[Rfam]
RNA sequence: UAUCACAAAGGGAAUGGGACUUCCCUGUUAUAAACCGCUAAUUUAGAAUAGCUGAUAGUUCCUGCUUAACU
Dot-bracket structure: .........[[[[..((((((]]]]...........((((........))))....)))))).........
RNA: Fluoride riboswitch aptamer (crcB RNA motif)
Organism: Dysgonomonas hofstadii